[Rfam]
RNA sequence: GUACUGUUUCUUGUAAUCAGUAACAAAGAUUUAUCCUUGUGUAUAGUAAAUAACAGGGAGAAUCUUUGUCACUAAGUACAAUUAACAGCUAUUC
Numbered sequence: 001g002u003a004c005u006g007u008u009u010c011u012u013g014u015a016a017u018c019a020g021u022a023a024c025a026a027a028g029a030u031u032u033a034u035c036c037u038u039g040u041g042u043a044u045a046g047u048a049a050a051u052a053a054c055a056g057g058g059a060g061a062a063u064c065u066u067u068g069u070c071a072c073u074a075a076g077u078a079c080a081a082u083u084a085a086c087a088g089c090u091a092u093u094c
Base pairs, nucleotide, nucleotide: 004088005087006086007085008084011081012080013079014078015077017075019073020072021071023069024068025067026066027065028064029063030062031061032060034059035058036057037056038055039054040053041051042050

Shown here is a 94-nucleotide RNA from Gopherus evgoodei, a member of the family "mir-802 microRNA precursor family". The match comes from Rfam's covariance-model search (91 bits). Rfam 15.1 lists 133 matches to the family in 133 species.